[Rfam]
RNA sequence: GUGGGAUACGGGGACAUGUUUCCCCAGGGGACAGCCGGUAAAAUUGUCGGGACUUUUACUGUCAUUGGCGGUAUUCUGACCAUCGCCCUCCCUGUUCCGAUUGUUGUGACAAAC
Numbered sequence: 001g002u003g004g005g006a007u008a009c010g011g012g013g014a015c016a017u018g019u020u021u022c023c024c025c026a027g028g029g030g031a032c033a034g035c036c037g038g039u040a041a042a043a044u045u046g047u048c049g050g051g052a053c054u055u056u057u058a059c060u061g062u063c064a065u066u067g068g069c070g071g072u073a074u075u076c077u078g079a080c081c082a083u084c085g086c087c088c089u090c091c092c093u094g095u096u097c098c099g100a101u102u103g104u105u106g107u108g109a110c111a112a113a114c
Stems, first nucleotide, its partner, number of pairs: 001114002005110001007108005013102002018097001021094001037077002040074001049063002
Shown here is a 114-nucleotide RNA from Mizuhopecten yessoensis, a member of the family "Potassium channel RNA editing signal".
The base pairs follow the family's consensus structure, which is taken from published work.
The match comes from Rfam's covariance-model search (60 bits).
Taxonomically the source falls in Mizuhopecten (Eukaryota, Lophotrochozoa, Bivalvia, Pectinida).
Rfam's curators write: This family represents a group of sequences related to the human potassium channel Kv1.1 hairpin element which directs the efficient modification of an adenosine to inosine by an adenosine deaminase acting on RNA (ADAR). The ADAR modification causes an isoleucine/valine recoding event which lies in the ion-conducting pore of the potassium channel. It is thought that this editing event targets the process of fast inactivation and allows a more rapid recovery from inactivation at negative potentials.
The literature on the family includes a 2004 paper in Nat Struct Mol Biol by Bhalla et al., "Control of human potassium channel inactivation by editing of a small mRNA hairpin".